[Rfam]
RNA sequence: UUCAAAAAUGGGUAAAUCUUGAAAGGUAGGGACGCAAAGCCAUGGGUCUAAUGCAUUUGCAAUGAUAGCCAGGCAGCAUAA
Numbered sequence: 001u002u003c004a005a006a007a008a009u010g011g012g013u014a015a016a017u018c019u020u021g022a023a024a025g026g027u028a029g030g031g032a033c034g035c036a037a038a039g040c041c042a043u044g045g046g047u048c049u050a051a052u053g054c055a056u057u058u059g060c061a062a063u064g065a066u067a068g069c070c071a072g073g074c075a076g077c078a079u080a081a
Stems, first nucleotide, its partner, number of pairs: 012035002017030003020025001039074003043071003046066003053060002
Rfam assigns this 81-nucleotide RNA from Desulforamulus reducens to the family "c-di-GMP-I riboswitch aptamer".
It scores 52 bits against the family's covariance model.
Taxonomically the source falls in Desulforamulus reducens (Bacteria, Bacillota, Clostridia, Peptococcaceae).
The base pairs follow the family's consensus structure, which is taken from published work.
Gene Ontology term of the family: cyclic-di-GMP binding.